This 83-nucleotide RNA sequence from Chrysochloris asiatica belongs to the Rfam family "Small nucleolar RNA SNORD121A". The base pairs follow the family's consensus structure, which was predicted with WAR. Its family is annotated with nucleolus and RNA processing in the Gene Ontology.
RNA sequence: UUGGAAAAGACAAUGAUGUUAGUAUUUCCAAGCACAUAUCUGAGCUGUAUGUGUGGAAAACCCCAGAACUGAGUCUUUUCCAC
Numbered sequence: 001u002u003g004g005a006a007a008a009g010a011c012a013a014u015g016a017u018g019u020u021a022g023u024a025u026u027u028c029c030a031a032g033c034a035c036a037u038a039u040c041u042g043a044g045c046u047g048u049a050u051g052u053g054u055g056g057a058a059a060a061c062c063c064c065a066g067a068a069c070u071g072a073g074u075c076u077u078u079u080c081c082a083c
Stems, first nucleotide, its partner, number of pairs: 002082005008076004